[Rfam]
RNA sequence: AAUCAAGAGCGUCAACGAACAGCCCUGGCUUGUUGGCCGGCAACCCUCUCACGGUAGUGGGGUGCUCCAGGUGAGGAUUCGGCCCCCGGAAAACCGGCGGCAAGUACCGCAC
Numbered sequence: 001a002a003u004c005a006a007g008a009g010c011g012u013c014a015a016c017g018a019a020c021a022g023c024c025c026u027g028g029c030u031u032g033u034u035g036g037c038c039g040g041c042a043a044c045c046c047u048c049u050c051a052c053g054g055u056a057g058u059g060g061g062g063u064g065c066u067c068c069a070g071g072u073g074a075g076g077a078u079u080c081g082g083c084c085c086c087c088g089g090a091a092a093a094c095c096g097g098c099g100g101c102a103a104g105u106a107c108c109g110c111a112c
Base pairs, nucleotide, nucleotide: 001079002078003077004076009038011037012036013035014034015033016032021030022029039066040065041064044062045061046060048057049056082101083100084099086097087096088095089094
Overview:
SAM (S-adenosyl methionine) riboswitch aptamer: a 112-nucleotide RNA sequence from Paeniglutamicibacter cryotolerans. Gene Ontology terms of the family: S-adenosylmethionine metabolic process and regulation of gene expression. It scores 85 bits against the family's covariance model.